[Rfam]
A member of the RNA family "Bacterial RNase P class B" from Lacticaseibacillus paracasei, 366 nucleotides long. The source organism's lineage runs through Bacteria, Bacillota, Lactobacillales, Lacticaseibacillus and Lacticaseibacillus paracasei. Clan: RNaseP clan. By type it is a ribozyme. The family's consensus secondary structure is taken from published work.

Nucleotides: 366
Base pairs, nucleotide, nucleotide: 004366005365006364007362008316009315010314012312013311014310016035017034018033019032020031021030040360041359042358044357045356046355047354048353049232051230052229053228054071055070056069057068058067059066077227078226079225080224081223082100083099084098085097086096087095101119102117103116104115105114106113107112120222121221123162124161125160126159131153132152133151134150138147139146140145169220170219171216172215173214186205187204189202190201191200192199193198236253237252238251257287259285260284261283262282263281288301289300290299291298292297320343321342322341323340324339325338326337327336328335
Number, partner (000 for none) and nucleotide at each position: 001000g002000g003000u004366c005365c006364u007362g008316a009315g010314u011000g012312a013311u014310c015000g016035c017034g018033g019032u020031c021030u022000g023000c024000u025000u026000u027000u028000g029000c030021a031020g032019g033018c034017u035016g036000a037000g038000g039000a040360a041359a042358g043000u044357c045356c046355a047354u048353g049232c050000c051230c052229g053228c054071a055070c056069a057068a058067g059066c060000u061000g062000a063000g064000a065000u066059g067058c068057u069056u070055g071054u072000a073000g074000u075000g076000u077227u078226c079225g080224u081223g082100c083099u084098a085097a086096g087095c088000c089000c090000a091000a092000u093000a094000a095087g096086c097085u098084u099083a100082g101119g102117g103116g104115c105114c106113g107112u108000g109000u110000a111000a112107a113106c114105g115104g116103c117102u118000a119101c120222g121221g122000c123162g124161g125160c126159c127000a128000a129000a130000c131153g132152c133151g134150c135000u136000a137000a138147g139146g140145c141000g142000u143000c144000a145140g146139c147138u148000a149000u150134g151133c152132g153131c154000u155000a156000g157000u158000a159126g160125g161124u162123c163000u164000g165000a166000a167000a168000a169220g170219u171216g172215c173214c174000a175000c176000a177000g178000u179000g180000a181000c182000g183000a184000a185000a186205c187204g188000a189202u190201c191200a192199g193198g194000g195000a196000a197000a198193c199192c200191u201190g202189a203000g204187c205186g206000g207000u208000g209000g210000a211000a212000c213000g214173g215172g216171u217000a218000a219170a220169c221121c222120c223081c224080g225079c226078g227077a228053g229052c230051g231000a232049g233000u234000a235000a236253c237252c238251c239000a240000a241000a242000c243000u244000u245000u246000u247000g248000g249000u250000a251238g252237g253236g254000g255000c256000g257287u258000u259285u260284u261283g262282c263281c264000a265000a266000g267000c268000a269000a270000a271000u272000u273000g274000a275000a276000g277000c278000g279000a280000c281263g282262g283261c284260a285259a286000u287257a288301c289300a290299g291298c292297g293000g294000u295000a296000a297292c298291g299290c300289u301288g302000a303000g304000a305000u306000a307000g308000a309000u310014g311013a312012u313000g314010a315009c316008u317000g318000a319000a320343g321342g322341a323340g324339c325338u326337u327336g328335u329000g330000c331000c332000u333000g334000a335328a336327c337326a338325a339324g340323u341322u342321c343320u344000g345000g346000a347000a348000c349000a350000a351000a352000a353048c354047a355046u356045g357044g358042c359041u360040u361000a362007u363000a364006g365005g366004g